This 121-nucleotide RNA from Beta vulgaris belongs to the Rfam family "MIR398 microRNA precursor family".
Its family is annotated with miRNA-mediated post-transcriptional gene silencing and RISC complex in the Gene Ontology.
Taxonomically the source falls in Beta vulgaris (Eukaryota, Viridiplantae, Euphyllophyta, Caryophyllales).
RNA sequence: GGAAGUCCGGCAGGGGCGACCUGAGAACACAUGAACAAUAGAACCCAAAGCCAAAUCACCAAUAAAAAAUUGGUGAAUAUGCCUCAUUCAUGUGGUCUCAGGUCGCUCCUGUGGAACUUCA
Numbered sequence: 001g002g003a004a005g006u007c008c009g010g011c012a013g014g015g016g017c018g019a020c021c022u023g024a025g026a027a028c029a030c031a032u033g034a035a036c037a038a039u040a041g042a043a044c045c046c047a048a049a050g051c052c053a054a055a056u057c058a059c060c061a062a063u064a065a066a067a068a069a070u071u072g073g074u075g076a077a078u079a080u081g082c083c084u085c086a087u088u089c090a091u092g093u094g095g096u097c098u099c100a101g102g103u104c105g106c107u108c109c110u111g112u113g114g115a116a117c118u119u120c121a
Stems, first nucleotide, its partner, number of pairs: 008114001011111004016106004023099004028094008

A reference for the family is Jones-Rhoades and Bartel (2004), "Computational identification of plant microRNAs and their targets, including a stress-induced miRNA", Mol Cell.